[Rfam]
RNA sequence: GGUUUCCCUUGGUGCAAAUCCAAUCACCUCCAUUUGCAAUUUCAGAUGAGAAAGAUUUCCCCAUUGGUAGCAAAUGCUUAUCCAUUAAGCAGGGAGAAUUCU
Numbered sequence: 001g002g003u004u005u006c007c008c009u010u011g012g013u014g015c016a017a018a019u020c021c022a023a024u025c026a027c028c029u030c031c032a033u034u035u036g037c038a039a040u041u042u043c044a045g046a047u048g049a050g051a052a053a054g055a056u057u058u059c060c061c062c063a064u065u066g067g068u069a070g071c072a073a074a075u076g077c078u079u080a081u082c083c084a085u086u087a088a089g090c091a092g093g094g095a096g097a098a099u100u101c102u
Stems, first nucleotide, its partner, number of pairs: 009023004059094003063085002066082005

Overview
The record is a 102-nucleotide RNA sequence from Inga leiocalycina, which matches "Plastid-rps12 3UTR RNA" in Rfam. The family has 1,299 seed sequences and 1,710 matches in Rfam 15.1. The sequence is in the family's curated seed alignment. On this family, see Richter et al., Plant Commun 2023: "Retrograde signaling in plants: A critical review focusing on the GUN pathway and beyond". Lineage of the source: Eukaryota > Viridiplantae > Embryophyta > Gunneridae > Inga. Rfam's curators write: Plastid rpl20 is a non-coding RNA (ncRNA) recognised in plastids. It was found in the three prime untranslated region (3UTR) of rps12 gene, its 3UTR location sugest a role in transcript maduration. The family's consensus secondary structure was predicted with LocARNA.